[Rfam]
RNA: Small nucleolar RNA SNORA44
Organism: Microtus ochrogaster
RNA sequence: ACACAUAUACUUAAAGUUAAUACUCCUGGUUGUGGUCAUGAAUCUCCAACUGCAUGCCAGAGCAACCGGAGAGACUUUGACACCUCAGGUCAGCACAGUGCCUACAGUUGCCACUUGCCCUUCCUCAGCAG
Numbered sequence: 001a002c003a004c005a006u007a008u009a010c011u012u013a014a015a016g017u018u019a020a021u022a023c024u025c026c027u028g029g030u031u032g033u034g035g036u037c038a039u040g041a042a043u044c045u046c047c048a049a050c051u052g053c054a055u056g057c058c059a060g061a062g063c064a065a066c067c068g069g070a071g072a073g074a075c076u077u078u079g080a081c082a083c084c085u086c087a088g089g090u091c092a093g094c095a096c097a098g099u100g101c102c103u104a105c106a107g108u109u110g111c112c113a114c115u116u117g118c119c120c121u122u123c124c125u126c127a128g129c130a131g
Stems, first nucleotide, its partner, number of pairs: 011041002016037001018035001020033003068124004073119001084110001087103003